[Rfam]
RNA sequence: AGAAGUAUGCAAUAAUAGCUUAUAAGAUGCUUUGGUGUUCCCUCGGAAAAUCCUGGGCAUGACUAAGAAAUUGGUCAUAAAACUAAAGACUAUCAUCUUGUGAGACGCUACUUCU
Numbered sequence: 001a002g003a004a005g006u007a008u009g010c011a012a013u014a015a016u017a018g019c020u021u022a023u024a025a026g027a028u029g030c031u032u033u034g035g036u037g038u039u040c041c042c043u044c045g046g047a048a049a050a051u052c053c054u055g056g057g058c059a060u061g062a063c064u065a066a067g068a069a070a071u072u073g074g075u076c077a078u079a080a081a082a083c084u085a086a087a088g089a090c091u092a093u094c095a096u097c098u099u100g101u102g103a104g105a106c107g108c109u110a111c112u113u114c115u
Stems, first nucleotide, its partner, number of pairs: 001115006009108002023100007030088007041057003045053002
A member of the RNA family "DUF3800-V RNA", 115 nucleotides long. It is one of the family's seed sequences. The family's consensus secondary structure is taken from published work.